The record is a 221-nucleotide RNA sequence from Hyphobacterium sp. CCMP332, which matches "permuted transfer-messenger RNA" in Rfam. Taxonomically the source falls in Hyphobacterium (Bacteria, Pseudomonadota, Alphaproteobacteria, Maricaulaceae).

RNA sequence: GACGAUAAAUGGUGCGUGUAAUAACUGAACUGGACCCGGGUGCGAUUCCCGGCAGCUCCACCAAUUUCUCCCGGCACUUCGCUAACGUGCCGGAUUUACGGGGCUGAUCAGGAUCGACAGGCAGCUAAAGACGUAACUUUCGUUCGCGUGGGUACCGUUAAAUGCCCGUUUUAGUAGUUGCAAACGACAACUAUGCUGAAGAGGUCGCUCUCGCCGCGUAA
Numbered sequence: 001g002a003c004g005a006u007a008a009a010u011g012g013u014g015c016g017u018g019u020a021a022u023a024a025c026u027g028a029a030c031u032g033g034a035c036c037c038g039g040g041u042g043c044g045a046u047u048c049c050c051g052g053c054a055g056c057u058c059c060a061c062c063a064a065u066u067u068c069u070c071c072c073g074g075c076a077c078u079u080c081g082c083u084a085a086c087g088u089g090c091c092g093g094a095u096u097u098a099c100g101g102g103g104c105u106g107a108u109c110a111g112g113a114u115c116g117a118c119a120g121g122c123a124g125c126u127a128a129a130g131a132c133g134u135a136a137c138u139u140u141c142g143u144u145c146g147c148g149u150g151g152g153u154a155c156c157g158u159u160a161a162a163u164g165c166c167c168g169u170u171u172u173a174g175u176a177g178u179u180g181c182a183a184a185c186g187a188c189a190a191c192u193a194u195g196c197u198g199a200a201g202a203g204g205u206c207g208c209u210c211u212c213g214c215c216g217c218g219u220a221a
Stems, first nucleotide, its partner, number of pairs: 001144005014134004026123002030120003036052005053106007145157002

It scores 128 bits against the family's covariance model. Pairs were carried over by alignment from the consensus structure, which is taken from published work.